[Rfam]
RNA sequence: GUUUGAUCUGGAGUUCCCUCAAUACACUUCAGAAUUUAUAAGAGUCCUUUUUUUGCUUAGGGACCAAUCGGCACACUGAAGUGGUUGGGGGAACUCUAGGUUUCAU
Numbered sequence: 001g002u003u004u005g006a007u008c009u010g011g012a013g014u015u016c017c018c019u020c021a022a023u024a025c026a027c028u029u030c031a032g033a034a035u036u037u038a039u040a041a042g043a044g045u046c047c048u049u050u051u052u053u054u055g056c057u058u059a060g061g062g063a064c065c066a067a068u069c070g071g072c073a074c075a076c077u078g079a080a081g082u083g084g085u086u087g088g089g090g091g092a093a094c095u096c097u098a099g100g101u102u103u104c105a106u
Stems, first nucleotide, its partner, number of pairs: 005102005011096010022086001025083008035073001
Record summary
Rfam assigns this 106-nucleotide sequence from Olea europaea to the family "mir-395 microRNA precursor family". mir-395 was identified in both Arabidopsis thaliana and Oryza sativa computationally and was later experimentally verified. mir-395 is thought to target mRNAs coding for ATP sulphurylases. The mature sequence is excised from the 3' arm of the hairpin.